The family of this 68-nucleotide RNA from Magallana gigas is "mir-71 microRNA precursor family". Rfam 15.1 lists 372 matches to the family in 291 species. Taxonomically the source falls in Magallana (Eukaryota, Metazoa, Lophotrochozoa, Pteriomorphia).
[Rfam]
RNA sequence: UUGUUGUGAAAGACAUGGGUAGUGAGAUGUUUUAAGGGUCACCUUGCUACUCUGUCUUUUGCAUGAGG
Numbered sequence: 001u002u003g004u005u006g007u008g009a010a011a012g013a014c015a016u017g018g019g020u021a022g023u024g025a026g027a028u029g030u031u032u033u034a035a036g037g038g039u040c041a042c043c044u045u046g047c048u049a050c051u052c053u054g055u056c057u058u059u060u061g062c063a064u065g066a067g068g
Stems, first nucleotide, its partner, number of pairs: 008060008017052003021048006028041002